[Rfam]
RNA sequence: CAGCUUAAUUUGCUUCUGUCCAAUCUAUGUAAUUGGCAAAGCGAAGCGGAGGAACCACUUUUUGGGGCGAACCGGGGGCGUUUUAGAUUGAAGAUUUUGGAUUGAAAGUUCCUAGCUAUCGAUCUCCAAUCAUCAAUCUGUAUCCUUUGGAGGGCAUCUCUCAGCCCUAGCCCGUCAGCUAACUCCGUCAGCAUUGAGAGAGGACUG
Numbered sequence: 001c002a003g004c005u006u007a008a009u010u011u012g013c014u015u016c017u018g019u020c021c022a023a024u025c026u027a028u029g030u031a032a033u034u035g036g037c038a039a040a041g042c043g044a045a046g047c048g049g050a051g052g053a054a055c056c057a058c059u060u061u062u063u064g065g066g067g068c069g070a071a072c073c074g075g076g077g078g079c080g081u082u083u084u085a086g087a088u089u090g091a092a093g094a095u096u097u098u099g100g101a102u103u104g105a106a107a108g109u110u111c112c113u114a115g116c117u118a119u120c121g122a123u124c125u126c127c128a129a130u131c132a133u134c135a136a137u138c139u140g141u142a143u144c145c146u147u148u149g150g151a152g153g154g155c156a157u158c159u160c161u162c163a164g165c166c167c168u169a170g171c172c173c174g175u176c177a178g179c180u181a182a183c184u185c186c187g188u189c190a191g192c193a194u195u196g197a198g199a200g201a202g203g204a205c206u207g
Base pairs, nucleotide, nucleotide: 003192004191005190009045010044011043012042013041014040015039046188047187048186049185050184051183056064057063065173066172067171073149074148075147076146077145078144152167153166154165155164
RNA: c-di-AMP riboswitch aptamer (ydaO/yuaA leader)